[Rfam]
RNA sequence: CUAUAUAAAUGAGGGAGCUUAUAUAUAGGCUGAGAGGGAAGUGUGACUUUCGACCGUUUACCUGAUUUGGAUAAUGCCAACGUAGGGAGAUUUUUUACUUUCUUUU
Number, nucleotide and partner (000 for none) at each position: 001c000002u000003a000004u000005a000006u000007a093008a092009a091010u090011g057012a000013g055014g054015g000016a000017g030018c029019u028020u027021a026022u000023a000024u000025a000026u021027a020028g019029g018030c017031u000032g000033a000034g000035a000036g000037g051038g050039a049040a048041g047042u000043g000044u000045g000046a000047c041048u040049u039050u038051c037052g000053a000054c014055c013056g000057u011058u000059u000060a000061c086062c085063u084064g083065a000066u000067u080068u079069g078070g077071a000072u000073a000074a000075u000076g000077c070078c069079a068080a067081c000082g000083u064084a063085g062086g061087g000088a000089g000090a010091u009092u008093u007094u000095u000096u000097a000098c000099u000100u000101u000102c000103u000104u000105u000106u000